[Rfam]
RNA sequence: CGGGUCAAAUCUCAGCUGGCAACUGUGAGUGGUGCAUUUUCUGCUCUCACAAUGGCCACUGGGAUUAUGCU
Dot-bracket structure: ..(((..((((((((..((((..((((((................)))))).).))).))))))))..)))
Numbered sequence: 001c002g003g004g005u006c007a008a009a010u011c012u013c014a015g016c017u018g019g020c021a022a023c024u025g026u027g028a029g030u031g032g033u034g035c036a037u038u039u040u041c042u043g044c045u046c047u048c049a050c051a052a053u054g055g056c057c058a059c060u061g062g063g064a065u066u067a068u069g070c071u
Stems, first nucleotide, its partner, number of pairs: 003071003008066008018057003021053001024051006